Rfam assigns this 250-nucleotide sequence to the family "raiA RNA". Rfam's curators put it in the seed alignment.

RNA sequence: CUUACUUAGGUCUGUGGUUGCGGGCGCAAGAUGCGCUCUAGUCCAUGGCAGACGAGGCCAAAGGGAUCCACGUAAGCUGGUGCGUGCGCGCAUUGGCGAUCAUGGCUCGUCCUAGAGGUAAGUCGUACCGCCCGUUAGAUGAGAGGCACGGGGCCUCGCGGGCGAGAGGACGGCGUGCGGGGAGCUGCGGCACCCCAAGCUAAGUCCCAGUACGCGAGUGUGGGGUCAAAGACCAGGUCAGCUGGGUAAG
Numbered sequence: 001c002u003u004a005c006u007u008a009g010g011u012c013u014g015u016g017g018u019u020g021c022g023g024g025c026g027c028a029a030g031a032u033g034c035g036c037u038c039u040a041g042u043c044c045a046u047g048g049c050a051g052a053c054g055a056g057g058c059c060a061a062a063g064g065g066a067u068c069c070a071c072g073u074a075a076g077c078u079g080g081u082g083c084g085u086g087c088g089c090g091c092a093u094u095g096g097c098g099a100u101c102a103u104g105g106c107u108c109g110u111c112c113u114a115g116a117g118g119u120a121a122g123u124c125g126u127a128c129c130g131c132c133c134g135u136u137a138g139a140u141g142a143g144a145g146g147c148a149c150g151g152g153g154c155c156u157c158g159c160g161g162g163c164g165a166g167a168g169g170a171c172g173g174c175g176u177g178c179g180g181g182g183a184g185c186u187g188c189g190g191c192a193c194c195c196c197a198a199g200c201u202a203a204g205u206c207c208c209a210g211u212a213c214g215c216g217a218g219u220g221u222g223g224g225g226u227c228a229a230a231g232a233c234c235a236g237g238u239c240a241g242c243u244g245g246g247u248a249a250g
Stems, first nucleotide, its partner, number of pairs: 001250009012241003015235005045221003048058001051111006067105002072100001077095001079093001103228001124214005129164007168207004173200002180196003